[Rfam]
Nucleotides: 095
Stems, first nucleotide, its partner, number of pairs: 030089006042076003046072002049069001051068003
Number, partner (000 for none) and nucleotide at each position: 001000u002000g003000g004000c005000u006000g007000u008000a009000g010000c011000u012000a013000u014000a015000u016000g017000a018000a019000u020000a021000a022000a023000g024000a025000g026000a027000a028000g029000a030089g031088g032087g033086a034085a035084g036000a037000a038000a039000a040000c041000u042076g043075g044074u045000c046072g047071g048000c049069u050000u051068g052067c053066u054000c055000u056000c057000c058000u059000u060000a061000u062000u063000g064000u065000u066053g067052g068051c069049a070000a071047c072046c073000c074044g075043c076042u077000u078000a079000c080000c081000a082000a083000g084035c085034u086033u087032c088031c089030c090000a091000c092000a093000u094000u095000a

Small nucleolar RNA snoR109: a 95-nucleotide RNA sequence from Phoenix dactylifera. Rfam links the family to the GO terms nucleolus and RNA processing. Rfam classes the family as an H/ACA-box small nucleolar RNA.